[Rfam]
RNA sequence: GUAUUGUGGUGGGGACUAUACCUCGUCAGAAGGUGUUUGGUCUUAGCCAGCGAGGACGACUUGCACGCGAGAAUUCAGACCCCUUCGUGCAAACACCAAUCAGUCGUCGAUAGCCAGCGAAGCCGCUUUUUGGG
Numbered sequence: 001g002u003a004u005u006g007u008g009g010u011g012g013g014g015a016c017u018a019u020a021c022c023u024c025g026u027c028a029g030a031a032g033g034u035g036u037u038u039g040g041u042c043u044u045a046g047c048c049a050g051c052g053a054g055g056a057c058g059a060c061u062u063g064c065a066c067g068c069g070a071g072a073a074u075u076c077a078g079a080c081c082c083c084u085u086c087g088u089g090c091a092a093a094c095a096c097c098a099a100u101c102a103g104u105c106g107u108c109g110a111u112a113g114c115c116a117g118c119g120a121a122g123c124c125g126c127u128u129u130u131u132g133g134g
Base pairs, nucleotide, nucleotide: 006126007125008124009123010119011118019035020034021033022032023031039048040047041046050114051113055108056107057106058105059104060103061102062091063090064089065088068087069086070085071084
RNA: Burkholderia sRNA 39